The family of this 83-nucleotide RNA from Arcicella rosea is "tRNA".
It is annotated as a transfer RNA.
About the family: Transfer RNA (tRNA) molecules are approximately 80 nucleotides in length. Their secondary structure includes four short double-helical elements and three loops (D, anti-codon, and T loops).
The base pairs follow the family's consensus structure, which is taken from published work.

[Rfam]
RNA sequence: GGGGGUGUACCAGAGUGGCCAAAUGGGGCAGACUGUAACUCUGCUGGAGUAUUCCUUCGGUGGUUCGAAUCCAUCCGCCCCCA
Numbered sequence: 001g002g003g004g005g006u007g008u009a010c011c012a013g014a015g016u017g018g019c020c021a022a023a024u025g026g027g028g029c030a031g032a033c034u035g036u037a038a039c040u041c042u043g044c045u046g047g048a049g050u051a052u053u054c055c056u057u058c059g060g061u062g063g064u065u066c067g068a069a070u071c072c073a074u075c076c077g078c079c080c081c082c083a
Base pairs, nucleotide, nucleotide: 001082002081003080004079005078006077007076010026011025012024028044029043030042031041032040059075060074061073062072063071